[Rfam]
RNA sequence: AGAAACAUUGUUUGUAAGUCGCUCUGGAUAAGAGCGUCUGCUAAAUGACUUAAA
Numbered sequence: 001a002g003a004a005a006c007a008u009u010g011u012u013u014g015u016a017a018g019u020c021g022c023u024c025u026g027g028a029u030a031a032g033a034g035c036g037u038c039u040g041c042u043a044a045a046u047g048a049c050u051u052a053a054a
Stems, first nucleotide, its partner, number of pairs: 013043001014041003020036006

Rfam assigns this 54-nucleotide RNA from Salmo salar to the family "UnaL2 LINE 3' element". Rfam describes the family as follows. The eel long interspersed element (LINE) UnaL2 and its partner short interspersed element (SINE) share a conserved 3' tail containing a stem-loop that is critical for their retrotransposition. Presumably, the first step of retrotransposition is the recognition of their 3' tails by UnaL2-encoded reverse transcriptase. The solution structure of a 17-nucleotide RNA derived from the 3' tail of UnaL2 was determined by NMR. A search with the family's covariance model found it, with a score of 71 bits. Rfam classes the family as a cis-regulatory element.